[Rfam]
RNA sequence: GUAGUUCAAAUUGACUCUAGUAGGGAGUCCUUUUUAUGAGUGACUCCCUAACGGAGUCAGAUUGAGGUACAA
Numbered sequence: 001g002u003a004g005u006u007c008a009a010a011u012u013g014a015c016u017c018u019a020g021u022a023g024g025g026a027g028u029c030c031u032u033u034u035u036a037u038g039a040g041u042g043a044c045u046c047c048c049u050a051a052c053g054g055a056g057u058c059a060g061a062u063u064g065a066g067g068u069a070c071a072a
Base pairs, nucleotide, nucleotide: 011060012059013058014057015056016055017054018053021050022049023048024047025046026045027044028043029042
The record is a 72-nucleotide sequence from Scaptodrosophila lebanonensis, which matches "mir-929 microRNA precursor family" in Rfam. A search with the family's covariance model found it, with a score of 79 bits. The source organism's lineage runs through Eukaryota, Dicondylia, Muscomorpha, Drosophilidae and Scaptodrosophila.